[Rfam]
RNA sequence: GAAUGACAUGAUGAUUUAUUAUUUCCCUAUUGGUUUGAUUGCCUGAAUGAUGGCACUUAUGUAUUAGCUCUAUCUGAUCAUUC
Number, nucleotide and partner (000 for none) at each position: 001g000002a082003a081004u080005g079006a000007c000008a000009u000010g000011a000012u000013g000014a000015u000016u000017u000018a000019u000020u000021a000022u000023u000024u000025c000026c000027c000028u000029a000030u000031u000032g000033g000034u000035u000036u000037g056038a000039u000040u055041g054042c053043c052044u000045g000046a000047a000048u000049g000050a000051u000052g043053g042054c041055a040056c037057u000058u000059a000060u000061g000062u000063a000064u000065u000066a000067g000068c000069u000070c000071u000072a000073u000074c000075u000076g000077a000078u000079c005080a004081u003082u002083c000
RNA: Small nucleolar RNA Z102/R77
Organism: Cajanus cajan